Background
Shown here is a 136-nucleotide sequence from Sphenodon punctatus, a member of the family "Small nucleolar RNA SNORA42/SNORA80 family". Rfam's curators write: The members of this family belong to the H/ACA class of snoRNAs that guide the sites of modification of uridines to pseudouridines. Human ACA42 (SNORA42) was cloned from HeLa cells by immunoprecipitation with anti-GAR1 antibody. Its is predicted to guide the pseudouridylation of residues U109 and U572 of 18S rRNA. ACA42 shares the same host gene with ACA26, ACA46, ACA50.
RNA sequence: GCAUGGCUAGAUUUAUGGUGGGUCCCACCCCAUGGCCCCCCCCAUAGUGUACCCCAUGCUACAGCAAGCUGCCCCCCCCGAACCAUUGGCUGGUUGGCUCCACAUAGCCCCUGCCACUGAAGUGGGGGGUACAGCC
Number, nucleotide and partner (000 for none) at each position: 001g059002c058003a057004u056005g054006g053007c000008u051009a000010g000011a000012u000013u047014u046015a045016u044017g043018g042019u000020g039021g038022g037023u035024c034025c000026c000027a000028c000029c000030c000031c000032a000033u000034g024035g023036c000037c022038c021039c020040c000041c000042c018043c017044a016045u015046a014047g013048u000049g000050u000051a008052c000053c006054c005055c000056a004057u003058g002059c001060u000061a000062c000063a000064g000065c000066a000067a000068g000069c000070u000071g000072c129073c128074c127075c126076c000077c125078c124079c000080g000081a000082a000083c000084c119085a118086u000087u000088g000089g114090c113091u000092g109093g108094u107095u106096g105097g000098c000099u000100c000101c000102a000103c000104a000105u096106a095107g094108c093109c092110c000111c000112u000113g090114c089115c000116a000117c000118u085119g084120a000121a000122g000123u000124g078125g077126g075127g074128g073129g072130u000131a000132c000133a000134g000135c000136c000
Notes:
The match comes from Rfam's covariance-model search (83 bits).